Rfam assigns this 176-nucleotide RNA sequence from Oscillibacter hominis to the family "Lysine riboswitch aptamer". It scores 78 bits against the family's covariance model. Pairs were carried over by alignment from the consensus structure, which is taken from published work. Riboswitches are metabolite binding domains within certain messenger RNAs that serve as precision sensors for their corresponding targets.

RNA sequence: GAUAGAGAUAGAGGCGCGUUGCGCGAUGAGUAACCCGGCUGCCAAGGCAGUGCAGGCCGUUGGCCGGGGGAAAGGCGCGGGACGCCGAAGGCAGUACCCGGGUGCAGCGGGGCUGUACUGGCCCGGUAAACGAACAGCAGCCGGGCUGUCGCAUGAUGCGGAGAGCUAUCUUUACA
Numbered sequence: 001g002a003u004a005g006a007g008a009u010a011g012a013g014g015c016g017c018g019u020u021g022c023g024c025g026a027u028g029a030g031u032a033a034c035c036c037g038g039c040u041g042c043c044a045a046g047g048c049a050g051u052g053c054a055g056g057c058c059g060u061u062g063g064c065c066g067g068g069g070g071a072a073a074g075g076c077g078c079g080g081g082a083c084g085c086c087g088a089a090g091g092c093a094g095u096a097c098c099c100g101g102g103u104g105c106a107g108c109g110g111g112g113c114u115g116u117a118c119u120g121g122c123c124c125g126g127u128a129a130a131c132g133a134a135c136a137g138c139a140g141c142c143g144g145g146c147u148g149u150c151g152c153a154u155g156a157u158g159c160g161g162a163g164a165g166c167u168a169u170c171u172u173u174a175c176a
Stems, first nucleotide, its partner, number of pairs: 006171006016085005022079003034068007089119002092115004097111004120147008149161005